[Rfam]
RNA sequence: AUCCCAAUGAAGAUUCUUAGACCAGGACGUGCCGUAUGACACAGUAAACAACAGCUGUUACUCACCACUGCAUGUGUCCUCCUUUGGCUAUAACCUUUGUGGUUUGGUCAGGGCUGGAAUAUCCAUUUGCACCUGGUUUGGUUCAUCUGUGUGCAUGAUUUUAAAUGGGUCUCUGAGGGAU
Numbered sequence: 001a002u003c004c005c006a007a008u009g010a011a012g013a014u015u016c017u018u019a020g021a022c023c024a025g026g027a028c029g030u031g032c033c034g035u036a037u038g039a040c041a042c043a044g045u046a047a048a049c050a051a052c053a054g055c056u057g058u059u060a061c062u063c064a065c066c067a068c069u070g071c072a073u074g075u076g077u078c079c080u081c082c083u084u085u086g087g088c089u090a091u092a093a094c095c096u097u098u099g100u101g102g103u104u105u106g107g108u109c110a111g112g113g114c115u116g117g118a119a120u121a122u123c124c125a126u127u128u129g130c131a132c133c134u135g136g137u138u139u140g141g142u143u144c145a146u147c148u149g150u151g152u153g154c155a156u157g158a159u160u161u162u163a164a165a166u167g168g169g170u171c172u173c174u175g176a177g178g179g180a181u
Base pairs, nucleotide, nucleotide: 001181002180003179004178005177069131070130071129072128074126075125076124077118078117079116081113082112086109087108088107089106090105092104093103094102095101
Background: The family of this 181-nucleotide RNA sequence from Triticum aestivum is "Small nucleolar RNA Z112". It is annotated as a C/D-box small nucleolar RNA. The match comes from Rfam's covariance-model search (156 bits). The family is grouped with related families in Rfam's "SNORD49 clan". NCBI's taxonomy places the organism under Eukaryota, Viridiplantae, Euphyllophyta, Spermatophyta, Triticum.